[Rfam]
TPP riboswitch aptamer (THI element): a 100-nucleotide RNA from Lysinibacillus telephonicus. Pairs were carried over by alignment from the consensus structure, which is taken from published work.

RNA sequence: UCUAAUUGCAGGGGGGGUGCUUUUGCGCCUGAGAAGGUUAAAACCUGACCCUUUGAACCUGACAGUUAAUACUGACGUAGGGAGCAAUUAAACCAUUUUG
Numbered sequence: 001u002c003u004a005a006u007u008g009c010a011g012g013g014g015g016g017g018u019g020c021u022u023u024u025g026c027g028c029c030u031g032a033g034a035a036g037g038u039u040a041a042a043a044c045c046u047g048a049c050c051c052u053u054u055g056a057a058c059c060u061g062a063c064a065g066u067u068a069a070u071a072c073u074g075a076c077g078u079a080g081g082g083a084g085c086a087a088u089u090a091a092a093c094c095a096u097u098u099u100g
Stems, first nucleotide, its partner, number of pairs: 005088005010052004015046001016029005036045003058081004063074003

A search with the family's covariance model found it, with a score of 66 bits. Taxonomically the source falls in Lysinibacillus (Bacteria, Bacilli, Caryophanales, Bacillaceae).